[Rfam]
Nucleotides: 074
Stems, first nucleotide, its partner, number of pairs: 002073002005070007013062003017058001020055003026050008
Number, partner (000 for none) and nucleotide at each position: 001000g002073g003072u004000g005070g006069u007068u008067c009066u010065c011064a012000a013062g014061u015060g016000c017058u018000g019000c020055a021054c022053c023000c024000c025000a026050g027049a028048a029047u030046c031045a032044g033043g034000u035000c036000c037000c038000u039000c040000c041000u042000c043033u044032c045031u046030g047029g048028u049027u050026c051000c052000u053022g054021g055020u056000a057000c058017a059000u060015c061014a062013c063000c064011u065010g066009a067008g068007a069006a070005u071000u072003g073002u074000a